Shown here is a 120-nucleotide RNA sequence, a member of the family "ylbH leader".
RNA sequence: UAAAAAAAAACCCCGCAUUUGCAGGGCCCCUCUUAUUAAAGUGUAAUCACUUAAAAGAAGGCAAAGGGAGAGGAGAAACCGGAGGAAGAACUUAUGGGGAAACGUAAGUCUUCUCCGCGG
Number, nucleotide and partner (000 for none) at each position: 001u000002a000003a000004a000005a000006a000007a000008a000009a000010a000011c026012c025013c024014c000015g022016c021017a000018u000019u000020u000021g016022c015023a000024g013025g012026g011027c068028c067029c066030c000031u064032c000033u000034u000035a000036u055037u054038a000039a052040a051041g050042u000043g000044u000045a000046a000047u000048c000049a000050c041051u040052u039053a000054a037055a036056a000057g000058a000059a000060g000061g000062c000063a000064a031065a000066g029067g028068g027069a000070g000071a000072g000073g000074a000075g000076a000077a000078a000079c000080c117081g116082g115083a114084g000085g113086a112087a111088g110089a000090a109091c108092u107093u106094a105095u000096g000097g000098g000099g000100a000101a000102a000103c000104g000105u094106a093107a092108g091109u090110c088111u087112u086113c085114u083115c082116c081117g080118c000119g000120g000
A search with the family's covariance model found it, with a score of 97 bits. Gene Ontology term of the family: regulation of gene expression. By type it is a cis-regulatory leader. On this family, see Barrick et al., Proc Natl Acad Sci U S A 2004: "New RNA motifs suggest an expanded scope for riboswitches in bacterial genetic control".